[Rfam]
RNA: Giardia U2 spliceosomal RNA
Organism: Giardia duodenalis
RNA sequence: CAGAGUCGGCUUCGACUUUAGUGUAGUUACUGUUUCGUCGGCUUAACCGCCGAUCCACUACAUGCAAGGGGCAGCCGGGCUGUGAGGCAGCUGCCAGGAUGGUCCUGCCCUUGUCCCGGCUGGCGCCGUCCACCUU
Numbered sequence: 001c002a003g004a005g006u007c008g009g010c011u012u013c014g015a016c017u018u019u020a021g022u023g024u025a026g027u028u029a030c031u032g033u034u035u036c037g038u039c040g041g042c043u044u045a046a047c048c049g050c051c052g053a054u055c056c057a058c059u060a061c062a063u064g065c066a067a068g069g070g071g072c073a074g075c076c077g078g079g080c081u082g083u084g085a086g087g088c089a090g091c092u093g094c095c096a097g098g099a100u101g102g103u104c105c106u107g108c109c110c111u112u113g114u115c116c117c118g119g120c121u122g123g124c125g126c127c128g129u130c131c132a133c134c135u136u
Base pairs, nucleotide, nucleotide: 037054038053039052040051041050042049070095071094072093073092074091075090079088080087081086097131098130099129100128101127102126103125104123105122107120108119109118